[Rfam]
RNA sequence: ACAGGUACGGAGACAUGGUGCCAGACACCCCUACGGGUAAAAUCGUGGGAGGUAUCUGCUCCUUGAGCGGCGUAUUGGUAAUUGCCUUACCGGUACCGGUCAUUGUCUCCAAU
Number, nucleotide and partner (000 for none) at each position: 001a113002c000003a000004g110005g109006u000007a106008c105009g104010g103011a000012g101013a100014c099015a000016u000017g096018g000019u000020g094021c093022c000023a000024g000025a000026c000027a000028c000029c000030c000031c000032u000033a000034c000035g000036g076037g075038u074039a073040a000041a000042a000043u000044c000045g000046u000047g000048g062049g061050a060051g000052g000053u000054a000055u000056c000057u000058g000059c000060u050061c049062c048063u000064u000065g000066a000067g000068c000069g000070g000071c000072g000073u039074a038075u037076u036077g000078g000079u000080a000081a000082u000083u000084g000085c000086c000087u000088u000089a000090c000091c000092g000093g021094u020095a000096c017097c000098g000099g014100u013101c012102a000103u010104u009105g008106u007107c000108u000109c005110c004111a000112a000113u001
Notes: The record is a 113-nucleotide RNA from Stegodyphus mimosarum, which matches "Potassium channel RNA editing signal" in Rfam. Lineage of the source: Eukaryota > Eumetazoa > Ecdysozoa > Arachnida > Stegodyphus. The base pairs follow the family's consensus structure, which is taken from published work. About the family: This family represents a group of sequences related to the human potassium channel Kv1.1 hairpin element which directs the efficient modification of an adenosine to inosine by an adenosine deaminase acting on RNA (ADAR). The ADAR modification causes an isoleucine/valine recoding event which lies in the ion-conducting pore of the potassium channel.